The family of this 67-nucleotide RNA from Thalassovita gelatinovora is "L2-Alphaproteobacteria ribosomal protein leader". A reference for the family is Eckert and Weinberg (2020), "Discovery of 20 novel ribosomal leader candidates in bacteria and archaea", BMC Microbiol. Pairs were carried over by alignment from the consensus structure, which is taken from published work.

RNA sequence: GGUCACCUCUCGAGGGGGCUAUAACCCGGAUGGGCAGGGGCCCAUCUUACAAUUCGGAAGACAGAAA
Numbered sequence: 001g002g003u004c005a006c007c008u009c010u011c012g013a014g015g016g017g018g019c020u021a022u023a024a025c026c027c028g029g030a031u032g033g034g035c036a037g038g039g040g041c042c043c044a045u046c047u048u049a050c051a052a053u054u055c056g057g058a059a060g061a062c063a064g065a066a067a
Base pairs, nucleotide, nucleotide: 001020002019003018004017006016007015008014029046030045031044032043033042034041035040